[Rfam]
This 86-nucleotide sequence from Danio rerio belongs to the Rfam family "mir-15 microRNA precursor family". From the family's description: This family represents the related mir-15a and mir-15b sequences. The family has 164 seed sequences and 2,045 matches in Rfam 15.1. The sequence is in the family's curated seed alignment. The source organism's lineage runs through Eukaryota, Gnathostomata, Euteleostomi, Cypriniphysae and Danio.
RNA sequence: CCUGAGUGCCCUGUAGCAGCACAUCAUGGUUUGUAAGUUAUAAGGGCAAAUUCCGAAUCAUGAUGUGCUGUCACUGGGAGCCUGGG
Numbered sequence: 001c002c003u004g005a006g007u008g009c010c011c012u013g014u015a016g017c018a019g020c021a022c023a024u025c026a027u028g029g030u031u032u033g034u035a036a037g038u039u040a041u042a043a044g045g046g047c048a049a050a051u052u053c054c055g056a057a058u059c060a061u062g063a064u065g066u067g068c069u070g071u072c073a074c075u076g077g078g079a080g081c082c083u084g085g086g
Stems, first nucleotide, its partner, number of pairs: 001086004006081001013074002016071009026061008035052002